[Rfam]
RNA sequence: UGACAGCUGUUCCUCUCUCUGCCCCAAGACAUGGGCUAUGGGAUUUUAGGCUGUCAAAGAGAAAAUGACCUUUUUCACUCAGGGGCAUGCUAUGGCAAACUGGCUGCCUGUCCUUGCCCGCUGAAUUUUGCGGGGUCAUACAAAU
Number, nucleotide and partner (000 for none) at each position: 001u056002g055003a054004c053005a052006g051007c050008u049009g000010u000011u000012c000013c000014u043015c042016u041017c040018u000019c000020u000021g036022c035023c034024c000025c000026a000027a000028g000029a000030c000031a000032u000033g000034g023035g022036c021037u000038a000039u000040g017041g016042g015043a014044u000045u000046u000047u000048a000049g008050g007051c006052u005053g004054u003055c002056a001057a000058a000059g000060a000061g000062a000063a000064a000065a000066u000067g137068a136069c135070c134071u133072u132073u000074u000075u000076c000077a000078c000079u124080c123081a122082g121083g000084g118085g117086c116087a115088u000089g113090c000091u000092a000093u000094g108095g107096c106097a105098a000099a000100c000101u000102g000103g000104c000105u097106g096107c095108c094109u000110g000111u000112c000113c089114u000115u087116g086117c085118c084119c000120g000121c082122u081123g080124a079125a000126u000127u000128u000129u000130g000131c000132g072133g071134g070135g069136u068137c067138a000139u000140a000141c000142a000143a000144a000145u000
Background
A member of the RNA family "Small nucleolar RNA SNORA79" from Xenopus laevis, 145 nucleotides long. Rfam describes the family as follows. ACA65 (SNORA79) is a member of the H/ACA class of snoRNAs that guide the sites of modification of uridines to pseudouridines. This snoRNA was identified by computational screening and its expression in mouse experimentally verified by Northern blot and primer extension analysis. NCBI's taxonomy places the organism under Eukaryota, Eumetazoa, Xenopodinae, Xenopus, Xenopus. For this family Rfam cites "A computational screen for mammalian pseudouridylation guide H/ACA RNAs" (Schattner et al., RNA, 2006). Gene Ontology terms of the family: nucleolus and RNA processing.